[Rfam]
RNA sequence: UUGCCCAUCAGAGAGGUUGUGAUGUGGUUCAUUUUUACUCAUAUCACAGCCAGCUUUGAUAAGCGAAA
Numbered sequence: 001u002u003g004c005c006c007a008u009c010a011g012a013g014a015g016g017u018u019g020u021g022a023u024g025u026g027g028u029u030c031a032u033u034u035u036u037a038c039u040c041a042u043a044u045c046a047c048a049g050c051c052a053g054c055u056u057u058g059a060u061a062a063g064c065g066a067a068a
Stems, first nucleotide, its partner, number of pairs: 007060007015051008025043002
RNA: mir-2 microRNA precursor family
Organism: Cotesia typhae